[Rfam]
RNA: Bacterial large subunit ribosomal RNA, nucleotides 606 to 834
Organism: Rhodobacter sp. 24-YEA-8
RNA sequence: GACUUGGUCUAACGAGCGAGCUUAAGCCGAUAGGUGUAGGCGCAGCGAAAGCGAGUCUUAAAUGGGCGACAGAGUUCGUUGGAUCAGACCCGAAACCAGGUGAUCUAGCCAUGAGCAGGAUGAAGGUAAGGUAACACUUACUGGAGGUCCGAACCAACACCCGUUGAAAAGGGUCUGGAUGACUUGUGGCUAGGGGUGAAAGGCUAAUCAAACCUGGAGAUAGCUGGUU
Numbered sequence: 001g002a003c004u005u006g007g008u009c010u011a012a013c014g015a016g017c018g019a020g021c022u023u024a025a026g027c028c029g030a031u032a033g034g035u036g037u038a039g040g041c042g043c044a045g046c047g048a049a050a051g052c053g054a055g056u057c058u059u060a061a062a063u064g065g066g067c068g069a070c071a072g073a074g075u076u077c078g079u080u081g082g083a084u085c086a087g088a089c090c091c092g093a094a095a096c097c098a099g100g101u102g103a104u105c106u107a108g109c110c111a112u113g114a115g116c117a118g119g120a121u122g123a124a125g126g127u128a129a130g131g132u133a134a135c136a137c138u139u140a141c142u143g144g145a146g147g148u149c150c151g152a153a154c155c156a157a158c159a160c161c162c163g164u165u166g167a168a169a170a171g172g173g174u175c176u177g178g179a180u181g182a183c184u185u186g187u188g189g190c191u192a193g194g195g196g197u198g199a200a201a202g203g204c205u206a207a208u209c210a211a212a213c214c215u216g217g218a219g220a221u222a223g224c225u226g227g228u229u
Stems, first nucleotide, its partner, number of pairs: 005086013020041004026035003045052002055067004089227002092224001096217006105193011116181001118150004125142006154178003159174004195205003